[Rfam]
RNA: Streptomyces sRNA 4677
RNA sequence: GGGGCGGUUGGCCGCGAGGUUCCUUAGAGAACUGGGGGAGAGAACUACUACCCUCCCUCCCCUCCCGGGGCCGUCACCCGCAAGGGUGACUUGGUUGCGGGGGUGGGGAAUCUGCGGUUACGUUCGCCGCAACAACCGAAAACGAAGACGGCCCCCGGCCGGGACUGGCAUCCCGAUCGAGGGCCUGACCGACAAGGAAGAAUCGAGCUUCCCG
Numbered sequence: 001g002g003g004g005c006g007g008u009u010g011g012c013c014g015c016g017a018g019g020u021u022c023c024u025u026a027g028a029g030a031a032c033u034g035g036g037g038g039a040g041a042g043a044a045c046u047a048c049u050a051c052c053c054u055c056c057c058u059c060c061c062c063u064c065c066c067g068g069g070g071c072c073g074u075c076a077c078c079c080g081c082a083a084g085g086g087u088g089a090c091u092u093g094g095u096u097g098c099g100g101g102g103g104u105g106g107g108g109a110a111u112c113u114g115c116g117g118u119u120a121c122g123u124u125c126g127c128c129g130c131a132a133c134a135a136c137c138g139a140a141a142a143c144g145a146a147g148a149c150g151g152c153c154c155c156c157g158g159c160c161g162g163g164a165c166u167g168g169c170a171u172c173c174c175g176a177u178c179g180a181g182g183g184c185c186u187g188a189c190c191g192a193c194a195a196g197g198a199a200g201a202a203u204c205g206a207g208c209u210u211c212c213c214g
Base pairs, nucleotide, nucleotide: 007193008192009191010190016064017063018062019061074089075088076087077086078085079084099128100127102125103124150185151184152183153182154181156179157178161174162173163172164171196212197211198210199209200208